[Rfam]
RNA: Bacterial RNase P class A
RNA sequence: CCAGACGGCCGGAUGGCCGCCUUCCGGCAAUGGCGAAAGCCGCCGGGGGGAGGAAAGUCCGGGCUCCACGGAAGAACGGUGCCAGGUAACGCCUGGCGGGGGCGACCCUAGGGAAAGUGCCACAGAAAGCAAACCGCCUGCCGCCCGCCCUUUCGAGGGACCGGGGGGCCGGCAAGGGUGAAAGGGUGCGGUAAGAGCGCACCGCGCCCCUGGCAACAGGGGCGGCACGGUAAACCCCACCGGGAGCAAGAUCGAAUAGGGGCGGCACGGCCGGGCAACCGGCCAAAGCAUCUUCCGAGCCGCCGCCCGGGUAGGUCGCGCGAGGCGCCUGGCGACAGGCGUCCCAGAUGAAUGGCCAUCCCACGGCCGCCGCCCCUUCACGGGGGGACGGGCCGGAGGACAGAACCCGGCUUACAGGCCGUCUGGCAGA
Numbered sequence: 001c002c003a004g005a006c007g008g009c010c011g012g013a014u015g016g017c018c019g020c021c022u023u024c025c026g027g028c029a030a031u032g033g034c035g036a037a038a039g040c041c042g043c044c045g046g047g048g049g050g051a052g053g054a055a056a057g058u059c060c061g062g063g064c065u066c067c068a069c070g071g072a073a074g075a076a077c078g079g080u081g082c083c084a085g086g087u088a089a090c091g092c093c094u095g096g097c098g099g100g101g102g103c104g105a106c107c108c109u110a111g112g113g114a115a116a117g118u119g120c121c122a123c124a125g126a127a128a129g130c131a132a133a134c135c136g137c138c139u140g141c142c143g144c145c146c147g148c149c150c151u152u153u154c155g156a157g158g159g160a161c162c163g164g165g166g167g168g169c170c171g172g173c174a175a176g177g178g179u180g181a182a183a184g185g186g187u188g189c190g191g192u193a194a195g196a197g198c199g200c201a202c203c204g205c206g207c208c209c210c211u212g213g214c215a216a217c218a219g220g221g222g223c224g225g226c227a228c229g230g231u232a233a234a235c236c237c238c239a240c241c242g243g244g245a246g247c248a249a250g251a252u253c254g255a256a257u258a259g260g261g262g263c264g265g266c267a268c269g270g271c272c273g274g275g276c277a278a279c280c281g282g283c284c285a286a287a288g289c290a291u292c293u294u295c296c297g298a299g300c301c302g303c304c305g306c307c308c309g310g311g312u313a314g315g316u317c318g319c320g321c322g323a324g325g326c327g328c329c330u331g332g333c334g335a336c337a338g339g340c341g342u343c344c345c346a347g348a349u350g351a352a353u354g355g356c357c358a359u360c361c362c363a364c365g366g367c368c369g370c371c372g373c374c375c376c377u378u379c380a381c382g383g384g385g386g387g388a389c390g391g392g393c394c395g396g397a398g399g400a401c402a403g404a405a406c407c408c409g410g411c412u413u414a415c416a417g418g419c420c421g422u423c424u425g426g427c428a429g430a
Stems, first nucleotide, its partner, number of pairs: 001426010011415001012360007020050009055413003059410005064246004074294002077242005082096005097111001098109004112237002117235002119231003134177002136173003140169003144165004185203006204226001205224008250317004260308006288300002291297001324343008